Rfam assigns this 67-nucleotide sequence from Ureibacillus yapensis to the family "Bacillaceae-1 RNA". By type it is a small RNA. Pairs were carried over by alignment from the consensus structure, which is taken from published work.
[Rfam]
RNA sequence: UUAAGAGGAAGUUAGCCUAAGAUCGUCGCGUCCUGCGACCACGGCUAACUGACCUGCAUCGUACAGG
Numbered sequence: 001u002u003a004a005g006a007g008g009a010a011g012u013u014a015g016c017c018u019a020a021g022a023u024c025g026u027c028g029c030g031u032c033c034u035g036c037g038a039c040c041a042c043g044g045c046u047a048a049c050u051g052a053c054c055u056g057c058a059u060c061g062u063a064c065a066g067g
Base pairs, nucleotide, nucleotide: 011049012048013047014046015045016044017043025039026038027037028036029035053067054066055065056064